[Rfam]
RNA sequence: AAAUAUCUUCAGGGCAGGGUGAAAUUCCCGACCGGCGGUAUAGUCCGCGACCCGUAUAGUUUUAUACGGCUGACUUGGUGGAAUUCCAAGACCGACAGUAAAGUCUGGAUGGAAGAAGGUAAAG
Numbered sequence: 001a002a003a004u005a006u007c008u009u010c011a012g013g014g015c016a017g018g019g020u021g022a023a024a025u026u027c028c029c030g031a032c033c034g035g036c037g038g039u040a041u042a043g044u045c046c047g048c049g050a051c052c053c054g055u056a057u058a059g060u061u062u063u064a065u066a067c068g069g070c071u072g073a074c075u076u077g078g079u080g081g082a083a084u085u086c087c088a089a090g091a092c093c094g095a096c097a098g099u100a101a102a103g104u105c106u107g108g109a110u111g112g113a114a115g116a117a118g119g120u121a122a123a124g
Stems, first nucleotide, its partner, number of pairs: 004121007017029003031104002033094002035048004043092002052069002074090005096107003
The family of this 124-nucleotide RNA from Clostridium thermopalmarium is "FMN riboswitch aptamer (RFN element)". The organism belongs to Clostridium thermopalmarium, within Bacteria.